[Rfam]
RNA sequence: UAUCAAUAGUCGGGGGGCAUAUACCUUAAUUGGUGUUUGCUGAGAUCGUUAUUCGAGACCCGUUGAACCUGAUUCAGUUAACACUGGCGUAGGGAACUAUAAGCACUCGAUC
Numbered sequence: 001u002a003u004c005a006a007u008a009g010u011c012g013g014g015g016g017g018c019a020u021a022u023a024c025c026u027u028a029a030u031u032g033g034u035g036u037u038u039g040c041u042g043a044g045a046u047c048g049u050u051a052u053u054c055g056a057g058a059c060c061c062g063u064u065g066a067a068c069c070u071g072a073u074u075c076a077g078u079u080a081a082c083a084c085u086g087g088c089g090u091a092g093g094g095a096a097c098u099a100u101a102a103g104c105a106c107u108c109g110a111u112c
Base pairs, nucleotide, nucleotide: 006100007099008098009097010096011062012061013060014059017040018039019038021036022035023034024033025032047055048054068093069092070091071090074087075086076085077084
RNA: TPP riboswitch aptamer (THI element)